The record is a 109-nucleotide RNA from Lactuca saligna, which matches "Small nucleolar RNA snoR97" in Rfam. Pairs were carried over by alignment from the consensus structure, which was predicted with WAR. Rfam classes the family as an H/ACA-box small nucleolar RNA. On this family, see Marker et al., Curr Biol 2002: "Experimental RNomics: identification of 140 candidates for small non-messenger RNAs in the plant Arabidopsis thaliana".
RNA sequence: AAAUACACAACGGUUUGGAGUCUGAAAAAACUCAUAGAGCAAGGUGUUGUCAUCAGCUUCUUCUUUCGGAACAUUAACGAGACUGGAGUUAAAUAACAGCACUAGAUUU
Numbered sequence: 001a002a003a004u005a006c007a008c009a010a011c012g013g014u015u016u017g018g019a020g021u022c023u024g025a026a027a028a029a030a031c032u033c034a035u036a037g038a039g040c041a042a043g044g045u046g047u048u049g050u051c052a053u054c055a056g057c058u059u060c061u062u063c064u065u066u067c068g069g070a071a072c073a074u075u076a077a078c079g080a081g082a083c084u085g086g087a088g089u090u091a092a093a094u095a096a097c098a099g100c101a102c103u104a105g106a107u108u109u
Base pairs, nucleotide, nucleotide: 043103044102045101046100047099048098049097055090056089057088058087059086060085062082063081064080065079